[Rfam]
RNA sequence: CUUGGCGUUGGGGUUGCGCCGCAGCAGCUCGUUGCCCACCGCGUGCAUCAGGUGGGUCUUGCCCAGCCCCACGCCGCCAUA
Numbered sequence: 001c002u003u004g005g006c007g008u009u010g011g012g013g014u015u016g017c018g019c020c021g022c023a024g025c026a027g028c029u030c031g032u033u034g035c036c037c038a039c040c041g042c043g044u045g046c047a048u049c050a051g052g053u054g055g056g057u058c059u060u061g062c063c064c065a066g067c068c069c070c071a072c073g074c075c076g077c078c079a080u081a
Base pairs, nucleotide, nucleotide: 005042006041007040009038010037011036012035016032017031018030021028051078052077053076054075056074057073061072
A member of the RNA family "antisense RNA of dnaA mRNA" from Alloalcanivorax marinus, 81 nucleotides long. A search with the family's covariance model found it, with a score of 62 bits. For this family Rfam cites "Identification and characterization of a cis-encoded antisense RNA associated with the replication process of Salmonella enterica serovar Typhi" (Dadzie et al., PLoS One, 2013).